[Rfam]
RNA sequence: GGGAAUGGCUGGGUCCAUGGUGGACUCCACGGACUUCAAAUCCGCUGGCGGGCCGGGUAGCCGGUCUGUGGUGGGUUCGAUUCCCACACAUUCCC
Numbered sequence: 001g002g003g004a005a006u007g008g009c010u011g012g013g014u015c016c017a018u019g020g021u022g023g024a025c026u027c028c029a030c031g032g033a034c035u036u037c038a039a040a041u042c043c044g045c046u047g048g049c050g051g052g053c054c055g056g057g058u059a060g061c062c063g064g065u066c067u068g069u070g071g072u073g074g075g076u077u078c079g080a081u082u083c084c085c086a087c088a089c090a091u092u093c094c095c
Stems, first nucleotide, its partner, number of pairs: 001095007008087001011027006028047001030044004049068005072086004
RNA: Selenocysteine transfer RNA